Background:
Shown here is a 74-nucleotide RNA from Closterium sp. NIES-67, a member of the family "tRNA". Pairs were carried over by alignment from the consensus structure, which is taken from published work. It is annotated as a transfer RNA. The match comes from Rfam's covariance-model search (64 bits).
RNA sequence: GUCCCAGUAGCUCAAUUGGAUAGAGCAUCCCCCUCCUAAGGGGAAGGUUGGCCGUUCGAACCGGCCCUGGGACG
Dot-bracket structure: (((((((..((((.........)))).(((((.......))))).....(((((.......)))))))))))).